Shown here is a 129-nucleotide RNA sequence from Caldicellulosiruptor saccharolyticus, a member of the family "FMN riboswitch aptamer (RFN element)".
It is one of the family's seed sequences.
Lineage of the source: Bacteria > Bacillota > Caldicellulosiruptoraceae > Caldicellulosiruptor > Caldicellulosiruptor saccharolyticus.
About the family: The RFN element is a highly conserved domain that is found frequently in the 5'-untranslated regions of prokaryotic mRNAs that encode for flavin mononucleotide (FMN) biosynthesis and transport proteins.
Pairs were carried over by alignment from the consensus structure, which is taken from published work.
RNA sequence: UCCAUCCUUCGGGGCGGGGUGAAAUUCCCCACUGGCGGUAAAAGCCCGCGAGCAAAAGCCUUUCUGGCUUUUGCAGAACCGGUGGAAUUCCGGUGCCAACGGUUACAGUCCGGAUGGGAGAAGGAAUGG
Numbered sequence: 001u002c003c004a005u006c007c008u009u010c011g012g013g014g015c016g017g018g019g020u021g022a023a024a025u026u027c028c029c030c031a032c033u034g035g036c037g038g039u040a041a042a043a044g045c046c047c048g049c050g051a052g053c054a055a056a057a058g059c060c061u062u063u064c065u066g067g068c069u070u071u072u073g074c075a076g077a078a079c080c081g082g083u084g085g086a087a088u089u090c091c092g093g094u095g096c097c098a099a100c101g102g103u104u105a106c107a108g109u110c111c112g113g114a115u116g117g118g119a120g121a122a123g124g125a126a127u128g129g
Base pairs, nucleotide, nucleotide: 005125006124007123008122009121010120017029018028019027031109032108033098034097035049036048037047038046044096045095052074053073054072078094079093080092081091082090100112101111102110